This 81-nucleotide sequence from Gossypium stocksii belongs to the Rfam family "Plastid-psbM 3UTR RNA". By type it is a cis-regulatory element. On this family, see Richter et al., Plant Commun 2023: "Retrograde signaling in plants: A critical review focusing on the GUN pathway and beyond". Plastid psbM is a non-coding RNA (ncRNA) recognised in plastids. It was found in the three prime untranslated region (3UTR) of psbM gene, its 3UTR location suggests a role in transcript maturation. Lineage of the source: Eukaryota > Viridiplantae > Streptophytina > Malvales > Gossypium. A search with the family's covariance model found it, with a score of 64 bits.
[Rfam]
RNA sequence: AACUUGAUAGCAUUGUGGAAAAAAGUAAAUCUUUCUACCAUACUAUUUAUUUCUAUUAUUGUAAUGUAUAAAGAUACAAGC
Numbered sequence: 001a002a003c004u005u006g007a008u009a010g011c012a013u014u015g016u017g018g019a020a021a022a023a024a025g026u027a028a029a030u031c032u033u034u035c036u037a038c039c040a041u042a043c044u045a046u047u048u049a050u051u052u053c054u055a056u057u058a059u060u061g062u063a064a065u066g067u068a069u070a071a072a073g074a075u076a077c078a079a080g081c
Stems, first nucleotide, its partner, number of pairs: 006047005012041002015038007023030001